[Rfam]
RNA sequence: GAUCAAACAGAAGGGGCCACUUGCUCAAGUCUUGAAUUGUCCGAGACGCAUUGUGUUGUGUCGACUUUUGGUGGUGUCAUGUCGGCGAAGGCAACGAAUCACGCCGGAGUUGUCAGCUAGCGAACGGCUUUUGCUUUGGCACAUCUCAUUUUCCGAAGCGAGGUUCAUGGCUGACAUCCAAAGCAGCACCGGGACCCAUCUCGAGUUGGAGUCAAAGUUUCGUGCUUGUCUGGUGCUGCCGAGGCCAAGUCAUGGGCCAAGUUUAGGUUCUUGAGAGCCAAGGUUGGAGUCGGGUUGUCCAUCUUUUGGAUCCUUGGACAGGCCGCAUUGGAUGAGGCAGUCCUGGUUGUCCUCUCACCAGGAAUGGUGCAGAGGACAACCCCCCA
Numbered sequence: 001g002a003u004c005a006a007a008c009a010g011a012a013g014g015g016g017c018c019a020c021u022u023g024c025u026c027a028a029g030u031c032u033u034g035a036a037u038u039g040u041c042c043g044a045g046a047c048g049c050a051u052u053g054u055g056u057u058g059u060g061u062c063g064a065c066u067u068u069u070g071g072u073g074g075u076g077u078c079a080u081g082u083c084g085g086c087g088a089a090g091g092c093a094a095c096g097a098a099u100c101a102c103g104c105c106g107g108a109g110u111u112g113u114c115a116g117c118u119a120g121c122g123a124a125c126g127g128c129u130u131u132u133g134c135u136u137u138g139g140c141a142c143a144u145c146u147c148a149u150u151u152u153c154c155g156a157a158g159c160g161a162g163g164u165u166c167a168u169g170g171c172u173g174a175c176a177u178c179c180a181a182a183g184c185a186g187c188a189c190c191g192g193g194a195c196c197c198a199u200c201u202c203g204a205g206u207u208g209g210a211g212u213c214a215a216a217g218u219u220u221c222g223u224g225c226u227u228g229u230c231u232g233g234u235g236c237u238g239c240c241g242a243g244g245c246c247a248a249g250u251c252a253u254g255g256g257c258c259a260a261g262u263u264u265a266g267g268u269u270c271u272u273g274a275g276a277g278c279c280a281a282g283g284u285u286g287g288a289g290u291c292g293g294g295u296u297g298u299c300c301a302u303c304u305u306u307u308g309g310a311u312c313c314u315u316g317g318a319c320a321g322g323c324c325g326c327a328u329u330g331g332a333u334g335a336g337g338c339a340g341u342c343c344u345g346g347u348u349g350u351c352c353u354c355u356c357a358c359c360a361g362g363a364a365u366g367g368u369g370c371a372g373a374g375g376a377c378a379a380c381c382c383c384c385c386a
Base pairs, nucleotide, nucleotide: 193213194212195211196209197208198207215227216226217225218224
Rfam assigns this 386-nucleotide part of an RNA from Neonectria ditissima to the family "Ascomycota telomerase RNA". Its family is annotated with telomerase activity, telomerase catalytic core complex and telomere maintenance via telomerase in the Gene Ontology. The organism belongs to Neonectria, within Eukaryota. A search with the family's covariance model found it, with a score of 368 bits. Rfam classes the family as a non-coding RNA gene. The pairing is the family consensus, mapped onto this sequence.